[Rfam]
RNA sequence: UUGGGGGUCUGAGCGACCACAGCAGAAGUGCUCAUUCCGUGGCUUCUGUCAGAUUCCUAUGAAUCUGUGACUUCUGCC
Numbered sequence: 001u002u003g004g005g006g007g008u009c010u011g012a013g014c015g016a017c018c019a020c021a022g023c024a025g026a027a028g029u030g031c032u033c034a035u036u037c038c039g040u041g042g043c044u045u046c047u048g049u050c051a052g053a054u055u056c057c058u059a060u061g062a063a064u065c066u067g068u069g070a071c072u073u074c075u076g077c078c
Base pairs, nucleotide, nucleotide: 013046015044017042018041022077023076024075025074026073027072028040029039030038050067051066052065053064054063055062056061
RNA: Mammalian CPEB3 ribozyme